RNA sequence: AUUUAAUUACGGCAAAACUAGAGCGAUCUAGUGACGCAAAGCUAAAGGGUCUUAAUGAGACAGCCAGUUGCUUGG
Numbered sequence: 001a002u003u004u005a006a007u008u009a010c011g012g013c014a015a016a017a018c019u020a021g022a023g024c025g026a027u028c029u030a031g032u033g034a035c036g037c038a039a040a041g042c043u044a045a046a047g048g049g050u051c052u053u054a055a056u057g058a059g060a061c062a063g064c065c066a067g068u069u070g071c072u073u074g075g
Base pairs, nucleotide, nucleotide: 012037013036017032018031019030020029021028022027040069041068042067043066047065048064049061050060051059
c-di-GMP-I riboswitch aptamer: a 75-nucleotide sequence from Anaeroplasma bactoclasticum. The match comes from Rfam's covariance-model search (55 bits).